[Rfam]
RNA sequence: AUCUGUCAUGGAUAGUCUAGUGGAAGGGCGACUGUAAAGCUGGCAACCCUGCUUAGGUAAUUACCAGCGGGCAAGGUGCCUGGUUCGAAUCCUGGAGUCGCUGUUGUACUCGUGCGAGUAAUCCACGAUCGCUACAACGCGUUAAGCAAUGAAGAUGACCCUUGAGGGAAGCAAUUCUGCAGAGACAUCUUCACUCUGGGAUGGCGGCACCAGAUUACACCUGCCCGUUACAGGGAAGCUGGCUGUUAGGUCGCACAACUGCUUUU
Numbered sequence: 001a002u003c004u005g006u007c008a009u010g011g012a013u014a015g016u017c018u019a020g021u022g023g024a025a026g027g028g029c030g031a032c033u034g035u036a037a038a039g040c041u042g043g044c045a046a047c048c049c050u051g052c053u054u055a056g057g058u059a060a061u062u063a064c065c066a067g068c069g070g071g072c073a074a075g076g077u078g079c080c081u082g083g084u085u086c087g088a089a090u091c092c093u094g095g096a097g098u099c100g101c102u103g104u105u106g107u108a109c110u111c112g113u114g115c116g117a118g119u120a121a122u123c124c125a126c127g128a129u130c131g132c133u134a135c136a137a138c139g140c141g142u143u144a145a146g147c148a149a150u151g152a153a154g155a156u157g158a159c160c161c162u163u164g165a166g167g168g169a170a171g172c173a174a175u176u177c178u179g180c181a182g183a184g185a186c187a188u189c190u191u192c193a194c195u196c197u198g199g200g201a202u203g204g205c206g207g208c209a210c211c212a213g214a215u216u217a218c219a220c221c222u223g224c225c226c227g228u229u230a231c232a233g234g235g236a237a238g239c240u241g242g243c244u245g246u247u248a249g250g251u252c253g254c255a256c257a258a259c260u261g262c263u264u265u266u
Stems, first nucleotide, its partner, number of pairs: 001013003019263005026256001028254005035248003038244003044241002047238001050235001052233002056065003067228003071225001074222005080213005085207003089202009099141001101139001105136004110128005116123002142146001150193007161184003168177003
Fungal signal recognition particle RNA: a 266-nucleotide RNA from Paecilomyces variotii.
The family's RNA type in Rfam is non-coding RNA gene.
Lineage of the source: Eukaryota > Opisthokonta > Fungi > Pezizomycotina > Paecilomyces.
Rfam 15.1 lists 748 matches to the family in 741 species.
Its family is annotated with SRP-dependent cotranslational protein targeting to membrane, signal sequence recognition, signal recognition particle, endoplasmic reticulum targeting and signal recognition particle, plasma membrane targeting in the Gene Ontology.
The family is grouped with related families in Rfam's "SRP clan".